[Rfam]
Rfam assigns this 139-nucleotide RNA sequence from Hymenochirus boettgeri to the family "U8 small nucleolar RNA". Lineage of the source: Eukaryota > Metazoa > Teleostomi > Sarcopterygii > Hymenochirus. It is annotated as a C/D-box small nucleolar RNA.
RNA sequence: UUAUCAGUGAGUUAAUCCUUAACCUGUCUUCCCUUUGGGAGAACAGAACAUGAUGAUUGAGGAAGGCUGAGUGACUGAUUACUCAUACUCCAUUUCGUGUCUGGGAUGACACACCAGGCCAAGGGUGAGCCAUUCUGAU
Numbered sequence: 001u002u003a004u005c006a007g008u009g010a011g012u013u014a015a016u017c018c019u020u021a022a023c024c025u026g027u028c029u030u031c032c033c034u035u036u037g038g039g040a041g042a043a044c045a046g047a048a049c050a051u052g053a054u055g056a057u058u059g060a061g062g063a064a065g066g067c068u069g070a071g072u073g074a075c076u077g078a079u080u081a082c083u084c085a086u087a088c089u090c091c092a093u094u095u096c097g098u099g100u101c102u103g104g105g106a107u108g109a110c111a112c113a114c115c116a117g118g119c120c121a122a123g124g125g126u127g128a129g130c131c132a133u134u135c136u137g138a139u
Stems, first nucleotide, its partner, number of pairs: 024046003029042002032039002069090002072087001073084002076081001094128002099119005